The family of this 94-nucleotide sequence from Actinospica durhamensis is "ZMP/ZTP riboswitch aptamer (pfl RNA motif)". The family has 185 seed sequences and 3,295 matches in Rfam 15.1. Rfam links the family to the GO terms one-carbon metabolic process and regulation of purine nucleotide biosynthetic process. Taxonomically the source falls in Actinospica (Bacteria, Actinomycetota, Catenulisporales, Actinospicaceae).

[Rfam]
RNA sequence: GUAGUGGACCGCGACUGGCGCCAGCGAGGUGGAACCGACCACCGUGGAGCGGCCCGAAGAGCAGCAGUGGGCACCGUGCGCCUGGGUGACCGCC
Dot-bracket structure: ....(((.((((..(.[[[[[.......((((......))))...)..)))).)))...............((((..]]]]]..))))......